[Rfam]
RNA sequence: AGCAAUGUUUGGCAAACUGCUGAAAAGCAGGGACGCAAAGCCAGAGGGGUCUAAGGCCGCCGUGUGCGGUUAUGACAGCCGGUUGCAAAU
Numbered sequence: 001a002g003c004a005a006u007g008u009u010u011g012g013c014a015a016a017c018u019g020c021u022g023a024a025a026a027g028c029a030g031g032g033a034c035g036c037a038a039a040g041c042c043a044g045a046g047g048g049g050u051c052u053a054a055g056g057c058c059g060c061c062g063u064g065u066g067c068g069g070u071u072a073u074g075a076c077a078g079c080c081g082g083u084u085g086c087a088a089a090u
Base pairs, nucleotide, nucleotide: 012036013035017030018029019028020027021026039084040083041082042081047080048079049076050075051074056070057069058068059067

Record summary: This 90-nucleotide sequence from Ruminococcaceae bacterium AF10-16 belongs to the Rfam family "c-di-GMP-I riboswitch aptamer". The match comes from Rfam's covariance-model search (58 bits). Taxonomically the source falls in Oscillospiraceae (Bacteria, Bacillati, Bacillota, Eubacteriales).